[Rfam]
RNA sequence: CUAGGGCUUCCACGCCCUAAUCCUAACUCCAGGGACUCGCAGGAGUUAGGAUUAGGUCGUGGAAGCCACAGG
Numbered sequence: 001c002u003a004g005g006g007c008u009u010c011c012a013c014g015c016c017c018u019a020a021u022c023c024u025a026a027c028u029c030c031a032g033g034g035a036c037u038c039g040c041a042g043g044a045g046u047u048a049g050g051a052u053u054a055g056g057u058c059g060u061g062g063a064a065g066c067c068a069c070a071g072g
Base pairs, nucleotide, nucleotide: 001071002070005067006066007065008064009063010062011061012060013059014058016056017055018054019053020052021051022050023049024048025047026046027045028044029043030042
Rfam assigns this 72-nucleotide RNA from Sapajus apella to the family "mir-1258 microRNA precursor family".
Pairs were carried over by alignment from the consensus structure, which was predicted with RNAalifold.
The organism belongs to Sapajus, within Eukaryota.
Rfam 15.1 lists 45 matches to the family in 21 species.
Gene Ontology terms of the family: miRNA-mediated post-transcriptional gene silencing and RISC complex.